The record is a 61-nucleotide RNA from Monodelphis domestica, which matches "mir-7386 microRNA precursor family" in Rfam. The base pairs follow the family's consensus structure, which was predicted with RNAalifold. Taxonomically the source falls in Monodelphis (Eukaryota, Metazoa, Deuterostomia, Metatheria). Its family is annotated with miRNA-mediated post-transcriptional gene silencing and RISC complex in the Gene Ontology.
RNA sequence: ACUCUGGAUAAGGCAUUCUAUUUUGUUGAUUCUGCUAAAAUAAAUACCUUAUCUGGAGGAG
Numbered sequence: 001a002c003u004c005u006g007g008a009u010a011a012g013g014c015a016u017u018c019u020a021u022u023u024u025g026u027u028g029a030u031u032c033u034g035c036u037a038a039a040a041u042a043a044a045u046a047c048c049u050u051a052u053c054u055g056g057a058g059g060a061g
Stems, first nucleotide, its partner, number of pairs: 003057011019042007